[Rfam]
Shown here is a 37-nucleotide RNA from Prevotella sp. CAG:520, a member of the family "abiF RNA". By type it is a small RNA. NCBI's taxonomy places the organism under Bacteria, Pseudomonadati, Bacteroidales, Prevotellaceae, Prevotella. From the family's description: Actinobacteria, Bacteroidetes, Clostridia, Proteobacteria, one Clostridia phage.

RNA sequence: CUCGUCAAGCCUCUUAACAAUGCUCAAAUGUGCGAGG
Numbered sequence: 001c002u003c004g005u006c007a008a009g010c011c012u013c014u015u016a017a018c019a020a021u022g023c024u025c026a027a028a029u030g031u032g033c034g035a036g037g
Stems, first nucleotide, its partner, number of pairs: 001036005008024003